[Rfam]
RNA sequence: CCACUCACGAAGUUGUUGUGAUAUGUCACGUGGUAUGCAUCAUAUCACAGCCAGCUUUGAUGAGCGGGA
Numbered sequence: 001c002c003a004c005u006c007a008c009g010a011a012g013u014u015g016u017u018g019u020g021a022u023a024u025g026u027c028a029c030g031u032g033g034u035a036u037g038c039a040u041c042a043u044a045u046c047a048c049a050g051c052c053a054g055c056u057u058u059g060a061u062g063a064g065c066g067g068g069a
Stems, first nucleotide, its partner, number of pairs: 005063003008059005013053001015051007024044003